[Rfam]
RNA sequence: CGGGGAAAACGCAGACUCCCCGUCAGACGGCCAAACCGUCCAAGCGCUGC
Numbered sequence: 001c002g003g004g005g006a007a008a009a010c011g012c013a014g015a016c017u018c019c020c021c022g023u024c025a026g027a028c029g030g031c032c033a034a035a036c037c038g039u040c041c042a043a044g045c046g047c048u049g050c
Stems, first nucleotide, its partner, number of pairs: 001022006011050004026040005